[Rfam]
RNA: Mammalian CPEB3 ribozyme
Organism: Crocodylus porosus
RNA sequence: UUGUAAUUUCAAGGCCACAGCAGAAGUGCUUAUGGUGCUGCAUUGUCAGAUUCCAACAAAUCUGUGAAUUCUGCU
Numbered sequence: 001u002u003g004u005a006a007u008u009u010c011a012a013g014g015c016c017a018c019a020g021c022a023g024a025a026g027u028g029c030u031u032a033u034g035g036u037g038c039u040g041c042a043u044u045g046u047c048a049g050a051u052u053c054c055a056a057c058a059a060a061u062c063u064g065u066g067a068a069u070u071c072u073g074c075u
Stems, first nucleotide, its partner, number of pairs: 014041002019075007026038003047064006